The record is a 132-nucleotide RNA sequence from Clarias magur, which matches "Small nucleolar RNA SNORA31" in Rfam. The family's RNA type in Rfam is H/ACA-box small nucleolar RNA. Gene Ontology terms of the family: nucleolus and RNA processing. ACA31 (SNORA31) belongs to the H/ACA class of snoRNAs which are thought to guide the sites of modification of uridines to pseudouridines. ACA31 is predicted to guide the pseudouridylation of U3713 in 28S rRNA and U218 in 18S rRNA. This family includes the mouse homologue snoMBI-161. It scores 48 bits against the family's covariance model. For this family Rfam cites "RNomics: an experimental approach that identifies 201 candidates for novel, small, non-messenger RNAs in mouse" (Huttenhofer et al., EMBO J, 2001). Taxonomically the source falls in Clarias (Eukaryota, Bilateria, Deuterostomia, Craniata).
[Rfam]
RNA sequence: UGGCAUCUACUGAUAGACCUGCUGCCGUUAUGAAUGGCCUCUGGGUUUGCACUGCGAUGCGACAUUAAUCCUCCUCGCGCUUUCUAGCUGUCCGUGACGUGGCAGAAACAGAUUGAAGAGAGGAGGACAGGC
Numbered sequence: 001u002g003g004c005a006u007c008u009a010c011u012g013a014u015a016g017a018c019c020u021g022c023u024g025c026c027g028u029u030a031u032g033a034a035u036g037g038c039c040u041c042u043g044g045g046u047u048u049g050c051a052c053u054g055c056g057a058u059g060c061g062a063c064a065u066u067a068a069u070c071c072u073c074c075u076c077g078c079g080c081u082u083u084c085u086a087g088c089u090g091u092c093c094g095u096g097a098c099g100u101g102g103c104a105g106a107a108a109c110a111g112a113u114u115g116a117a118g119a120g121a122g123g124a125g126g127a128c129a130g131g132c
Base pairs, nucleotide, nucleotide: 003060004059005058006057007056011051012050014049015048016047017046018045019044024038025037026036027035028034072124073123074122075121076120080115083112084111085110088105089104090103091102092101